[Rfam]
RNA sequence: AUUAAUAACCAAGGUCGAGAACCUUAAAAAUUAAA
Numbered sequence: 001a002u003u004a005a006u007a008a009c010c011a012a013g014g015u016c017g018a019g020a021a022c023c024u025u026a027a028a029a030a031u032u033a034a035a
Stems, first nucleotide, its partner, number of pairs: 002034005011025005

Shown here is a 35-nucleotide sequence, a member of the family "S16-Flavobacteria ribosomal protein leader". The literature on the family includes a 2020 paper in BMC Microbiol by Eckert and Weinberg, "Discovery of 20 novel ribosomal leader candidates in bacteria and archaea". The sequence is in the family's curated seed alignment.